Nucleotides: 072
Base pairs, nucleotide, nucleotide: 007066008065009064010063011062012061013060015058016057017056020053021052022051023050025048027046028045
Number, partner (000 for none) and nucleotide at each position: 001000u002000c003000a004000g005000g006000u007066c008065u009064u010063u011062u012061u013060g014000c015058g016057g017056u018000c019000u020053g021052g022051g023050c024000u025048u026000g027046c028045u029000g030000u031000g032000c033000g034000u035000a036000c037000a038000u039000g040000a041000a042000u043000g044000u045028g046027g047000g048025a049000a050023g051022c052021c053020c054000u055000u056017a057016c058015c059000c060013c061012a062011a063010a064009a065008a066007g067000c068000a069000u070000c071000u072000g